This 314-nucleotide RNA sequence from Halalkaliarchaeum desulfuricum belongs to the Rfam family "Archaeal signal recognition particle RNA". Its family is annotated with signal recognition particle, plasma membrane targeting and SRP-dependent cotranslational protein targeting to membrane, signal sequence recognition in the Gene Ontology.
RNA sequence: AUAUGGACUAGGCUGGGCGGUUAGGCCCCGCUCGGUAACCCGUAAUAGAGUCUUUAGCGGGGGCCGAAAUCCGGGGGCGUCCGGUCAGACCGACGCGGGCCCCGGAAGUCGACGUGGAAGCCUCGUCCGACGGGGACAGCGGUCCGCGGUGCCCGCCCGCAGGGGCGGUCCACCGCGGUUCGUCGGCGGCACCGGGUCAGGCGCGGAAGCGAGCAGCCCACCGUCGAACGCCCGUCGCUCGUCGGGUCGCGGGGUGGAGGAGACGACCGGGACUACCCGGGUCGGAACGCCGGGCAAUCUCGGGGCGUCCACAU
Numbered sequence: 001a002u003a004u005g006g007a008c009u010a011g012g013c014u015g016g017g018c019g020g021u022u023a024g025g026c027c028c029c030g031c032u033c034g035g036u037a038a039c040c041c042g043u044a045a046u047a048g049a050g051u052c053u054u055u056a057g058c059g060g061g062g063g064c065c066g067a068a069a070u071c072c073g074g075g076g077g078c079g080u081c082c083g084g085u086c087a088g089a090c091c092g093a094c095g096c097g098g099g100c101c102c103c104g105g106a107a108g109u110c111g112a113c114g115u116g117g118a119a120g121c122c123u124c125g126u127c128c129g130a131c132g133g134g135g136a137c138a139g140c141g142g143u144c145c146g147c148g149g150u151g152c153c154c155g156c157c158c159g160c161a162g163g164g165g166c167g168g169u170c171c172a173c174c175g176c177g178g179u180u181c182g183u184c185g186g187c188g189g190c191a192c193c194g195g196g197u198c199a200g201g202c203g204c205g206g207a208a209g210c211g212a213g214c215a216g217c218c219c220a221c222c223g224u225c226g227a228a229c230g231c232c233c234g235u236c237g238c239u240c241g242u243c244g245g246g247u248c249g250c251g252g253g254g255u256g257g258a259g260g261a262g263a264c265g266a267c268c269g270g271g272a273c274u275a276c277c278c279g280g281g282u283c284g285g286a287a288c289g290c291c292g293g294g295c296a297a298u299c300u301c302g303g304g305g306c307g308u309c310c311a312c313a314u
Stems, first nucleotide, its partner, number of pairs: 001314002004311005011065004015033006039061005070304007079295004083290001090285005096279004101271005108264003113259001115257001120255007127245008135236003139232001140230002142180001144178008153168006183227007194219004202211003

A reference for the family is Batey et al. (2000), "Crystal structure of the ribonucleoprotein core of the signal recognition particle", Science.
By type it is a non-coding RNA gene.
The source organism's lineage runs through Archaea, Methanobacteriati, Methanobacteriota, Halobacteria and Halalkaliarchaeum.
A search with the family's covariance model found it, with a score of 189 bits.